[Rfam]
The family of this 139-nucleotide RNA sequence from Salvator merianae is "Small nucleolar RNA SNORA14". The organism belongs to Salvator, within Eukaryota. ACA14 is a member of the H/ACA class of snoRNA that guide the sites of modification of uridines to pseudouridines. Rfam links the family to the GO terms nucleolus and RNA processing.
Nucleotides: 139
Stems, first nucleotide, its partner, number of pairs: 003079004008072004017066006023059003088138007099123007107115002
Number, partner (000 for none) and nucleotide at each position: 001000c002000a003079g004078c005077g006076c007000u008072c009071u010070c011069u012000c013000u014000c015000a016000u017066u018065c019064c020063c021062c022061c023059c024058c025057c026000u027000a028000g029000u030000c031000u032000g033000u034000c035000a036000g037000u038000g039000u040000g041000c042000g043000c044000g045000c046000u047000g048000a049000c050000a051000g052000a053000c054000u055000g056000g057025g058024g059023g060000g061022g062021g063020g064019g065018g066017a067000u068000g069011a070010g071009a072008g073000a074000g075000a076006g077005c078004g079003c080000g081000a082000u083000c084000g085000g086000a087000a088138g089137g090136a091135g092134a093133g094132a095000a096000a097000u098000c099123a100122a101121g102120g103119c104118a105117a106000a107115g108114g109000g110000a111000a112000g113000a114108c115107c116000u117105u118104u119103g120102c121101c122100u123099u124000g125000a126000u127000u128000u129000c130000u131000c132094u133093c134092u135091u136090u137089c138088c139000g